[Rfam]
RNA: FMN riboswitch aptamer (RFN element)
Organism: Fumia xinanensis
RNA sequence: GCAAGUCUUCAGGGCAGGGUGAAAUUCCCGAUUGGCGGUAUAGUCCGCGAGCGCCUCGGCGCAGAUUUGGUGCAACUCCAAAACCAACAGUACAGUCUGGAUGAAAGAAGACGUGU
Numbered sequence: 001g002c003a004a005g006u007c008u009u010c011a012g013g014g015c016a017g018g019g020u021g022a023a024a025u026u027c028c029c030g031a032u033u034g035g036c037g038g039u040a041u042a043g044u045c046c047g048c049g050a051g052c053g054c055c056u057c058g059g060c061g062c063a064g065a066u067u068u069g070g071u072g073c074a075a076c077u078c079c080a081a082a083a084c085c086a087a088c089a090g091u092a093c094a095g096u097c098u099g100g101a102u103g104a105a106a107g108a109a110g111a112c113g114u115g116u
Stems, first nucleotide, its partner, number of pairs: 003114001005112006017029003031096002033086002035048004043084002051062003066082005088099003